[Rfam]
RNA sequence: GAUGAGAAGUCUCCGGAAUCGCUGCACCGCGUUGAUGAUUCCCUUGAACCCUUGUGUGUCUGAUGGCUGCGGCUGUUCCGU
Number, nucleotide and partner (000 for none) at each position: 001g000002a081003u080004g079005a000006g077007a000008a000009g000010u000011c000012u000013c000014c000015g000016g000017a000018a000019u000020c000021g000022c000023u000024g000025c000026a000027c000028c000029g000030c000031g000032u000033u000034g000035a000036u000037g000038a000039u000040u000041c000042c000043c000044u000045u000046g000047a000048a000049c000050c000051c000052u000053u000054g000055u000056g000057u000058g000059u000060c000061u000062g000063a000064u000065g000066g000067c000068u000069g000070c000071g000072g000073c000074u000075g000076u000077u006078c000079c004080g003081u002
The family of this 81-nucleotide RNA sequence from Rhynochetos jubatus is "Small nucleolar RNA MBII-202". The base pairs follow the family's consensus structure, which was predicted with PFOLD. The match comes from Rfam's covariance-model search (64 bits). NCBI's taxonomy places the organism under Eukaryota, Chordata, Euteleostomi, Phaethontimorphae, Rhynochetos. The literature on the family includes a 2001 paper in EMBO J by Huttenhofer et al., "RNomics: an experimental approach that identifies 201 candidates for novel, small, non-messenger RNAs in mouse".